[Rfam]
RNA sequence: GUCAACUACCCCGCCCUAAAAGAGGCGGAGCUUGAAGCGAUAAAUCAAGCUCUGGUUGACCAGACCGAGCGCCGCGAGGCGCUACGUUGCGCAGAAGAUUGCAGACCCACCCUGACGUGCUUCCUCAGCGUCAGGCUCUGGAAGGGGCGAUUGCAGACAAGCGACCGGGUAAGCACGAAACGGAUCGUCCCCGUCAGUUCUAUCGCUGACACCUGCUGCGCAACAUGGUCGAGGGGAGACUUCC
Numbered sequence: 001g002u003c004a005a006c007u008a009c010c011c012c013g014c015c016c017u018a019a020a021a022g023a024g025g026c027g028g029a030g031c032u033u034g035a036a037g038c039g040a041u042a043a044a045u046c047a048a049g050c051u052c053u054g055g056u057u058g059a060c061c062a063g064a065c066c067g068a069g070c071g072c073c074g075c076g077a078g079g080c081g082c083u084a085c086g087u088u089g090c091g092c093a094g095a096a097g098a099u100u101g102c103a104g105a106c107c108c109a110c111c112c113u114g115a116c117g118u119g120c121u122u123c124c125u126c127a128g129c130g131u132c133a134g135g136c137u138c139u140g141g142a143a144g145g146g147g148c149g150a151u152u153g154c155a156g157a158c159a160a161g162c163g164a165c166c167g168g169g170u171a172a173g174c175a176c177g178a179a180a181c182g183g184a185u186c187g188u189c190c191c192c193g194u195c196a197g198u199u200c201u202a203u204c205g206c207u208g209a210c211a212c213c214u215g216c217u218g219c220g221c222a223a224c225a226u227g228g229u230c231g232a233g234g235g236g237a238g239a240c241u242u243c244c
Base pairs, nucleotide, nucleotide: 001060002059003058004057005056006055007054008053010030012027013026015022031049032048033047034046063230064229065228066227067226068083069082070081071080072079086224087223088222089221090220091219092218093217094216096214107141108140111135112134113133114132115131116130117129118128119240121238122237123236124235125234126233144191145190146189147188148187149186150185151184152183